[Rfam]
RNA: L31-Firmicutes ribosomal protein leader
RNA sequence: CUCUGGAUUAGCAAAUAAUUCAGGGCAGGAGGAA
Numbered sequence: 001c002u003c004u005g006g007a008u009u010a011g012c013a014a015a016u017a018a019u020u021c022a023g024g025g026c027a028g029g030a031g032g033a034a
Stems, first nucleotide, its partner, number of pairs: 001025010